[Rfam]
RNA sequence: AAAUCAUCGAGAGAGGUGGAGGGACUGGCCCUUUGAUACCUCAGCAACCUACCCUAGGGUGUGGUGCUAAUUCCAGAGAGAUGAAGG
Number, nucleotide and partner (000 for none) at each position: 001a000002a000003a000004u084005c083006a082007u081008c080009g000010a000011g000012a000013g042014a041015g040016g039017u038018g000019g000020a000021g031022g030023g029024a000025c076026u075027g074028g073029c023030c022031c021032u000033u000034u000035g000036a000037u000038a017039c016040c015041u014042c013043a068044g067045c066046a065047a000048c064049c063050u000051a000052c058053c057054c000055u000056a000057g053058g052059g000060u000061g000062u000063g049064g048065u046066g045067c044068u043069a000070a000071u000072u079073c028074c027075a026076g025077a000078g000079a072080g008081a007082u006083g005084a004085a000086g000087g000
The record is an 87-nucleotide RNA sequence from Propionigenium maris, which matches "SAM riboswitch aptamer (S box leader)" in Rfam. Gene Ontology term of the family: regulation of gene expression. The family's consensus secondary structure is taken from published work. It scores 71 bits against the family's covariance model.